[Rfam]
RNA sequence: CGUCCGCGUCGCGACUGGCGCCUGAGGUGGACUGACCACCAGGGAGCGGCAAGCAGCACCGAUUCGAGGUCGUCCGCCUGGGCCGAGAGU
Numbered sequence: 001c002g003u004c005c006g007c008g009u010c011g012c013g014a015c016u017g018g019c020g021c022c023u024g025a026g027g028u029g030g031a032c033u034g035a036c037c038a039c040c041a042g043g044g045a046g047c048g049g050c051a052a053g054c055a056g057c058a059c060c061g062a063u064u065c066g067a068g069g070u071c072g073u074c075c076g077c078c079u080g081g082g083c084c085g086a087g088a089g090u
Stems, first nucleotide, its partner, number of pairs: 003055001005053001008050005015043002017078004027039004068084004
Dot-bracket structure: ..(.(..(((((..(([[[[......((((.....))))..))..)))))..).)............((((...]]]]..))))......
The record is a 90-nucleotide RNA from Georgenia yuyongxinii, which matches "ZMP/ZTP riboswitch aptamer (pfl RNA motif)" in Rfam. Taxonomically the source falls in Georgenia (Bacteria, Bacillati, Actinomycetes, Allobogoriellales). It scores 53 bits against the family's covariance model.